[Rfam]
RNA: bZIP non canonical Hac1/Xbp1 intron
RNA sequence: GAGAUCCAGGUCCUCUGAACCCGCAGCGUUCAGACUACGUGCACCUCUGCAGCAGGGGCAGGUCUGGUUCAC
Numbered sequence: 001g002a003g004a005u006c007c008a009g010g011u012c013c014u015c016u017g018a019a020c021c022c023g024c025a026g027c028g029u030u031c032a033g034a035c036u037a038c039g040u041g042c043a044c045c046u047c048u049g050c051a052g053c054a055g056g057g058g059c060a061g062g063u064c065u066g067g068u069u070c071a072c
Stems, first nucleotide, its partner, number of pairs: 001072001003070002006067001008065005015033006042058001044056003